[Rfam]
RNA: Group II catalytic intron D1-D4-3
RNA sequence: UCCACCGUGAGAUGGAAUCUGAAGGAAGCCUUAGGCAAAAUCUCGGUCUGAGGAAAACGAACCUCAUACAAGGCUUGCUUGGAAGGGACGAGCUUGAAUAACAAAAUGAAGUCCAAUACUAUCUGAAUUCCAAGGAGUAAUGAAGUGGCAAGGGGACGUUUUGAGACCACUGAAAAAGUC
Numbered sequence: 001u002c003c004a005c006c007g008u009g010a011g012a013u014g015g016a017a018u019c020u021g022a023a024g025g026a027a028g029c030c031u032u033a034g035g036c037a038a039a040a041u042c043u044c045g046g047u048c049u050g051a052g053g054a055a056a057a058c059g060a061a062c063c064u065c066a067u068a069c070a071a072g073g074c075u076u077g078c079u080u081g082g083a084a085g086g087g088a089c090g091a092g093c094u095u096g097a098a099u100a101a102c103a104a105a106a107u108g109a110a111g112u113c114c115a116a117u118a119c120u121a122u123c124u125g126a127a128u129u130c131c132a133a134g135g136a137g138u139a140a141u142g143a144a145g146u147g148g149c150a151a152g153g154g155g156a157c158g159u160u161u162u163g164a165g166a167c168c169a170c171u172g173a174a175a176a177a178g179u180c
Base pairs, nucleotide, nucleotide: 001016002015003014004013006011028180030178031177032176036172041166042165043164044163045162048148049147050146062145064143065142066141067140073138074137075136078134079133080132081131082130083129084128086114087113088112089111092107094105095104